RNA sequence: GUGCCUUAAACUAAUGAGUAAGGAAAAUAUAGAGCUUUGGUAACGCUUAGCUAUGCUAACGAAUUAAGCGACCAUAUUUUUGAAGAGGCACAGGUCGUCCCCAAUGGCCGCGCGAACUACUUUUUCGCGUGGCCGGGUGAAGCGAUCUACCUC
Number, nucleotide and partner (000 for none) at each position: 001g000002u000003g000004c023005c022006u021007u020008a019009a000010a000011c000012u000013a000014a000015u000016g000017a000018g000019u008020a007021a006022g005023g004024a000025a000026a000027a000028u000029a000030u000031a000032g000033a052034g051035c050036u049037u000038u000039g046040g000041u000042a000043a000044c000045g000046c039047u000048u000049a036050g035051c034052u033053a000054u070055g069056c068057u067058a000059a000060c000061g000062a000063a000064u000065u000066a000067a057068g056069c055070g054071a000072c000073c000074a000075u000076a000077u000078u000079u000080u000081u000082g000083a000084a000085g153086a152087g151088g150089c000090a000091c000092a148093g147094g146095u145096c144097g143098u142099c000100c000101c137102c136103a000104a000105u000106g134107g133108c132109c131110g130111c000112g128113c127114g126115a125116a124117c000118u000119a000120c000121u000122u000123u000124u116125u115126c114127g113128c112129g000130u110131g109132g108133c107134c106135g000136g102137g101138u000139g000140a000141a000142g098143c097144g096145a095146u094147c093148u092149a000150c088151c087152u086153c085

Rfam assigns this 153-nucleotide RNA from Vespula pensylvanica to the family "U12 minor spliceosomal RNA".
For this family Rfam cites "Pre-mRNA splicing: the discovery of a new spliceosome doubles the challenge" (Tarn and Steitz, Trends Biochem Sci, 1997).
Clan: U2 clan.